[Rfam]
The record is a 122-nucleotide RNA sequence from Gossypium schwendimanii, which matches "MIR7504 microRNA precursor family" in Rfam. The family's consensus secondary structure was predicted with RNAalifold.
RNA sequence: AAUAGGAGAAUGACAAAUUAAAUUUUUCUUCCUGAUUUUCAGCUUUUUCCUCUAAAAAAAAUCAAAUUGAACUAAAAAUGCUAAAAUUUAGGAGGAAAAAUUUGAUUUGUCAUUCUCCUAUU
Numbered sequence: 001a002a003u004a005g006g007a008g009a010a011u012g013a014c015a016a017a018u019u020a021a022a023u024u025u026u027u028c029u030u031c032c033u034g035a036u037u038u039u040c041a042g043c044u045u046u047u048u049c050c051u052c053u054a055a056a057a058a059a060a061a062u063c064a065a066a067u068u069g070a071a072c073u074a075a076a077a078a079u080g081c082u083a084a085a086a087u088u089u090a091g092g093a094g095g096a097a098a099a100a101u102u103u104g105a106u107u108u109g110u111c112a113u114u115c116u117c118c119u120a121u122u
Stems, first nucleotide, its partner, number of pairs: 001122027029094007037086003041082002045078004
NCBI's taxonomy places the organism under Eukaryota, Streptophytina, malvids, Malvales, Gossypium.